Rfam assigns this 101-nucleotide sequence from Leucaena trichandra to the family "Plastid-psbM 3UTR RNA". Rfam's curators write: Plastid psbM is a non-coding RNA (ncRNA) recognised in plastids. It was found in the three prime untranslated region (3UTR) of psbM gene, its 3UTR location suggests a role in transcript maturation. The sequence is in the family's curated seed alignment. The source organism's lineage runs through Eukaryota, Tracheophyta, eudicotyledons, Pentapetalae and Leucaena. The literature on the family includes a 2023 paper in Plant Commun by Richter et al., "Retrograde signaling in plants: A critical review focusing on the GUN pathway and beyond".
[Rfam]
RNA sequence: UCUGAUAGUAUGGUAGAAAGAAAUCAAUUUGAUUUCUUUCUACCAUACUAUCUAUUAUUGUAGUGUAUAAAGUUUUACUCUAUAAAGAUAGAGGUUUAAUA
Numbered sequence: 001u002c003u004g005a006u007a008g009u010a011u012g013g014u015a016g017a018a019a020g021a022a023a024u025c026a027a028u029u030u031g032a033u034u035u036c037u038u039u040c041u042a043c044c045a046u047a048c049u050a051u052c053u054a055u056u057a058u059u060g061u062a063g064u065g066u067a068u069a070a071a072g073u074u075u076u077a078c079u080c081u082a083u084a085a086a087g088a089u090a091g092a093g094g095u096u097u098a099a100u101a
Base pairs, nucleotide, nucleotide: 004052005051006050007049008048009047010046011045012044013043014042015041016040017039018038019037020036021035022034023033024032025031